RNA sequence: UUGUUAUAUCCGCUUAAUCUUUUAUAAAGAACGGGGGACCCAAUGUUAGCGUUUAUACGCUUUGGGGUGAAUUCUUUUAUGAAGGGGCUGCAUGUUUCCUUUAGCCCUAACCCGACAGCUAACCUCGUCAGCGUCUAAAAGGGAACAG
Numbered sequence: 001u002u003g004u005u006a007u008a009u010c011c012g013c014u015u016a017a018u019c020u021u022u023u024a025u026a027a028a029g030a031a032c033g034g035g036g037g038a039c040c041c042a043a044u045g046u047u048a049g050c051g052u053u054u055a056u057a058c059g060c061u062u063u064g065g066g067g068u069g070a071a072u073u074c075u076u077u078u079a080u081g082a083a084g085g086g087g088c089u090g091c092a093u094g095u096u097u098c099c100u101u102u103a104g105c106c107c108u109a110a111c112c113c114g115a116c117a118g119c120u121a122a123c124c125u126c127g128u129c130a131g132c133g134u135c136u137a138a139a140a141g142g143g144a145a146c147a148g
Stems, first nucleotide, its partner, number of pairs: 011133004018030003031128006041064002065113003073082002085107006
Description: The family of this 148-nucleotide RNA from Bacillus oleivorans is "c-di-AMP riboswitch aptamer (ydaO/yuaA leader)". NCBI's taxonomy places the organism under Bacteria, Bacillota, Bacilli, Caryophanales, Bacillus. A search with the family's covariance model found it, with a score of 86 bits.